[Rfam]
RNA sequence: AAUCAAGAGCGUCAACGCGUAGCCCUGGCUUGUUGGCCGACAACCCUCUUCAGGUAGUGGGGUGUUCCAGGUGAUGAUUCGGCCGUCCGGAAAACCGGCCGGCAAGUACCGCGC
Numbered sequence: 001a002a003u004c005a006a007g008a009g010c011g012u013c014a015a016c017g018c019g020u021a022g023c024c025c026u027g028g029c030u031u032g033u034u035g036g037c038c039g040a041c042a043a044c045c046c047u048c049u050u051c052a053g054g055u056a057g058u059g060g061g062g063u064g065u066u067c068c069a070g071g072u073g074a075u076g077a078u079u080c081g082g083c084c085g086u087c088c089g090g091a092a093a094a095c096c097g098g099c100c101g102g103c104a105a106g107u108a109c110c111g112c113g114c
Stems, first nucleotide, its partner, number of pairs: 001079004009038001011037006021030002039066003044062003048057002082103004087098004
The family of this 114-nucleotide RNA from Zafaria cholistanensis is "SAM (S-adenosyl methionine) riboswitch aptamer". Pairs were carried over by alignment from the consensus structure, which is taken from published work. The match comes from Rfam's covariance-model search (85 bits). Its Rfam clan is "SAM clan".